[Rfam]
RNA sequence: GACCUUAAGGGCGAUGGAGUUCGCCUUAUAACCGCCCUUGGGGCUGAUGACUCCUGCUUGUGU
Numbered sequence: 001g002a003c004c005u006u007a008a009g010g011g012c013g014a015u016g017g018a019g020u021u022c023g024c025c026u027u028a029u030a031a032c033c034g035c036c037c038u039u040g041g042g043g044c045u046g047a048u049g050a051c052u053c054c055u056g057c058u059u060g061u062g063u
Base pairs, nucleotide, nucleotide: 010025011024012023013022016054017053018052019051020050021049034044035043036042